[Rfam]
RNA: Group II catalytic intron D1-D4-7
Organism: Sclerotinia nivalis
RNA sequence: CCAGGUGUAUUCUCACCUGAGUCUAGGUGAACAUGCCAGAUGGGUAACUGUCUGGUAUGAAGCUUCACUGACAACAUUUUUAACGAGAUAGCUUAAAGGUAGUAGUGUGUGCUUAAAAACUAAGGGAUUUUUAGUAC
Numbered sequence: 001c002c003a004g005g006u007g008u009a010u011u012c013u014c015a016c017c018u019g020a021g022u023c024u025a026g027g028u029g030a031a032c033a034u035g036c037c038a039g040a041u042g043g044g045u046a047a048c049u050g051u052c053u054g055g056u057a058u059g060a061a062g063c064u065u066c067a068c069u070g071a072c073a074a075c076a077u078u079u080u081u082a083a084c085g086a087g088a089u090a091g092c093u094u095a096a097a098g099g100u101a102g103u104a105g106u107g108u109g110u111g112c113u114u115a116a117a118a119a120c121u122a123a124g125g126g127a128u129u130u131u132u133a134g135u136a137c
Stems, first nucleotide, its partner, number of pairs: 002019006027068005032059012079096002082093001084091001097121002100118001105112002